Source information
A member of the RNA family "Bacterial RNase P class A" from Nocardioides seonyuensis, 373 nucleotides long. The family's RNA type in Rfam is ribozyme. The match comes from Rfam's covariance-model search (290 bits).

RNA sequence: UGGGCUGGCCGGGCGACCGCGACACCUCCGCUCCGGCGGUAGUGGCGAGGAAGGUCCGGGCUCCACAGGGCAGGGUGAUGGCCAACAGCCAUCCGGGGCAACCCGCGGGACAGUGCCACAGAGAACAGACCGCCUCCCGGCUUGCCGGGCGGCAAGGGUGAAACGGUGGUGCAAGAGACCACCAGUGCUCCGGGCGACCGGAGCAGCUAGGUAAACCCCACCCGGAGCAAGAUCAGACAGUGCGCGUUCGAGGGCGGCCCGCCCGAGCGCACGGGUAGAUCGCACGAGGGGGUCGGCAACGGCUCCCCCAGAUGGAUGGUCGCCCCGCCGCACCAGCGGCGGACAGAACCCGGCCUACAGGCCAGCCCAUUCG
Numbered sequence: 001u002g003g004g005c006u007g008g009c010c011g012g013g014c015g016a017c018c019g020c021g022a023c024a025c026c027u028c029c030g031c032u033c034c035g036g037c038g039g040u041a042g043u044g045g046c047g048a049g050g051a052a053g054g055u056c057c058g059g060g061c062u063c064c065a066c067a068g069g070g071c072a073g074g075g076u077g078a079u080g081g082c083c084a085a086c087a088g089c090c091a092u093c094c095g096g097g098g099c100a101a102c103c104c105g106c107g108g109g110a111c112a113g114u115g116c117c118a119c120a121g122a123g124a125a126c127a128g129a130c131c132g133c134c135u136c137c138c139g140g141c142u143u144g145c146c147g148g149g150c151g152g153c154a155a156g157g158g159u160g161a162a163a164c165g166g167u168g169g170u171g172c173a174a175g176a177g178a179c180c181a182c183c184a185g186u187g188c189u190c191c192g193g194g195c196g197a198c199c200g201g202a203g204c205a206g207c208u209a210g211g212u213a214a215a216c217c218c219c220a221c222c223c224g225g226a227g228c229a230a231g232a233u234c235a236g237a238c239a240g241u242g243c244g245c246g247u248u249c250g251a252g253g254g255c256g257g258c259c260c261g262c263c264c265g266a267g268c269g270c271a272c273g274g275g276u277a278g279a280u281c282g283c284a285c286g287a288g289g290g291g292g293u294c295g296g297c298a299a300c301g302g303c304u305c306c307c308c309c310a311g312a313u314g315g316a317u318g319g320u321c322g323c324c325c326c327g328c329c330g331c332a333c334c335a336g337c338g339g340c341g342g343a344c345a346g347a348a349c350c351c352g353g354c355c356u357a358c359a360g361g362c363c364a365g366c367c368c369a370u371u372c373g
Stems, first nucleotide, its partner, number of pairs: 001369010011358001012324007020047002023044003028039003052356003056353005061227004068260004073223005078092005093107001094105004108218002113216002115212003130157002132153003136149005165183006185207001186205008231281004240272006252264004288307008